[Rfam]
RNA: Small nucleolar RNA SNORD66
Organism: Hemibagrus wyckioides
RNA sequence: CUCCGAUGACGACCUCAGUUUUGUCUGGGCCACUGAUGAUUGUACUUGGGAUCGAGGAUCUGAGGAG
Numbered sequence: 001c002u003c004c005g006a007u008g009a010c011g012a013c014c015u016c017a018g019u020u021u022u023g024u025c026u027g028g029g030c031c032a033c034u035g036a037u038g039a040u041u042g043u044a045c046u047u048g049g050g051a052u053c054g055a056g057g058a059u060c061u062g063a064g065g066a067g
Stems, first nucleotide, its partner, number of pairs: 001067004